[Rfam]
A member of the RNA family "MIR2593 microRNA precursor family" from Medicago truncatula, 113 nucleotides long. Rfam links the family to the GO terms miRNA-mediated post-transcriptional gene silencing and RISC complex. The organism belongs to Medicago, within Eukaryota. The base pairs follow the family's consensus structure, which was predicted with RNAalifold.
RNA sequence: AUAUAAGCAAAAUUGACUUUUUUGGUUCAUUCAUUUAAUGAUGUAUAUGAUCCAUAUUAUGAACCACAUACAUCAUUAAAUGAAUGAACCUAAAAAAUUAAUUUUGCUUAUAU
Numbered sequence: 001a002u003a004u005a006a007g008c009a010a011a012a013u014u015g016a017c018u019u020u021u022u023u024g025g026u027u028c029a030u031u032c033a034u035u036u037a038a039u040g041a042u043g044u045a046u047a048u049g050a051u052c053c054a055u056a057u058u059a060u061g062a063a064c065c066a067c068a069u070a071c072a073u074c075a076u077u078a079a080a081u082g083a084a085u086g087a088a089c090c091u092a093a094a095a096a097a098u099u100a101a102u103u104u105u106g107c108u109u110a111u112a113u
Base pairs, nucleotide, nucleotide: 002112003111004110005109006108007107008106009105010104011103012102014100015099016098018097019096020095021094022093023092024091025090026088027087028086029085030084031083032082033081034080035079036078037077038076039075040074041073042072043071048066049065051063